[Rfam]
RNA: SAM (S-adenosyl methionine) riboswitch aptamer
RNA sequence: GGUCAUGAGUGCCAGCGACAAGCCCCGGCUCGCUGGCCGGCAACCCUCCAACCGCGGUGGGGUGCCCCGGGUGAAGACCAGGCGGAGCGUCGACCGGCGCCCGCAAGCACGGCAU
Numbered sequence: 001g002g003u004c005a006u007g008a009g010u011g012c013c014a015g016c017g018a019c020a021a022g023c024c025c026c027g028g029c030u031c032g033c034u035g036g037c038c039g040g041c042a043a044c045c046c047u048c049c050a051a052c053c054g055c056g057g058u059g060g061g062g063u064g065c066c067c068c069g070g071g072u073g074a075a076g077a078c079c080a081g082g083c084g085g086a087g088c089g090u091c092g093a094c095c096g097g098c099g100c101c102c103g104c105a106a107g108c109a110c111g112g113c114a115u
Stems, first nucleotide, its partner, number of pairs: 001079004009038001011037006021030002039066003044062003048057002082104004087100005